[Rfam]
RNA sequence: UCCGGAGUCCGCACGAUUGCGGUCGUGUGGAGCGUGAUCUUGUAAAUUCAGCGGCCCACCGGCAAUGUAAACGACGUCAGGAACCUAUGGGGUAUCCGCGUGUUUGCCGGUUGUCUACACCAGCCUGGCGGUAUGUUUGUCGAAAUUCGGACGCCCAUACCUCCAUCCAUCACCAGUGGCCGCUUGCUCC
Numbered sequence: 001u002c003c004g005g006a007g008u009c010c011g012c013a014c015g016a017u018u019g020c021g022g023u024c025g026u027g028u029g030g031a032g033c034g035u036g037a038u039c040u041u042g043u044a045a046a047u048u049c050a051g052c053g054g055c056c057c058a059c060c061g062g063c064a065a066u067g068u069a070a071a072c073g074a075c076g077u078c079a080g081g082a083a084c085c086u087a088u089g090g091g092g093u094a095u096c097c098g099c100g101u102g103u104u105u106g107c108c109g110g111u112u113g114u115c116u117a118c119a120c121c122a123g124c125c126u127g128g129c130g131g132u133a134u135g136u137u138u139g140u141c142g143a144a145a146u147u148c149g150g151a152c153g154c155c156c157a158u159a160c161c162u163c164c165a166u167c168c169a170u171c172a173c174c175a176g177u178g179g180c181c182g183c184u185u186g187c188u189c190c
Stems, first nucleotide, its partner, number of pairs: 001037002008031009050184007058111008075100003080097003083093002126165003130161006140150003